[Rfam]
RNA sequence: UAUAUUUUGGUGUACGAUGCACAAAAGUUUUUGAUACUUUUAGUAAUAGUUUAAUUCUAUUAAAUAUAA
Numbered sequence: 001u002a003u004a005u006u007u008u009g010g011u012g013u014a015c016g017a018u019g020c021a022c023a024a025a026a027g028u029u030u031u032u033g034a035u036a037c038u039u040u041u042a043g044u045a046a047u048a049g050u051u052u053a054a055u056u057c058u059a060u061u062a063a064a065u066a067u068a069a
Base pairs, nucleotide, nucleotide: 001068002067003066004065005064006063007062010022011021012020013019024040025039026038027037028036045061046060047059048058049057
Description
The record is a 69-nucleotide RNA from Drosophila virilis, which matches "tRNA" in Rfam. It is annotated as a transfer RNA. Gene Ontology term of the family: triplet codon-amino acid adaptor activity. It is one of the family's seed sequences. The organism belongs to Drosophila, within Eukaryota.